[Rfam]
RNA sequence: UCUGAAAGAGCAGUUGGUGUUUAUUUUUUACUAAAUAGCAAUUGCUCUUUUGGAAG
Dot-bracket structure: ((((((((((((((((.((((((........)))))).))))))))))))))))..